[Rfam]
TPP riboswitch aptamer (THI element): a 113-nucleotide RNA sequence from Paenibacillus nanensis. A search with the family's covariance model found it, with a score of 71 bits. The base pairs follow the family's consensus structure, which is taken from published work. Gene Ontology term of the family: thiamine pyrophosphate binding.
RNA sequence: GAAUAGAUUCCGGGGAGCUGGAUUUGGCCGGCUGAGAGGGAAUGACACACAUUCCGACCCGCAUAACCUGAUCCGGAUAAUGCCGGCGUAGGAAUAGAAGCUAAGCUUCUUUU
Numbered sequence: 001g002a003a004u005a006g007a008u009u010c011c012g013g014g015g016a017g018c019u020g021g022a023u024u025u026g027g028c029c030g031g032c033u034g035a036g037a038g039g040g041a042a043u044g045a046c047a048c049a050c051a052u053u054c055c056g057a058c059c060c061g062c063a064u065a066a067c068c069u070g071a072u073c074c075g076g077a078u079a080a081u082g083c084c085g086g087c088g089u090a091g092g093a094a095u096a097g098a099a100g101c102u103a104a105g106c107u108u109c110u111u112u113u
Stems, first nucleotide, its partner, number of pairs: 006101001008099003011061004017032005039055005067092004073086004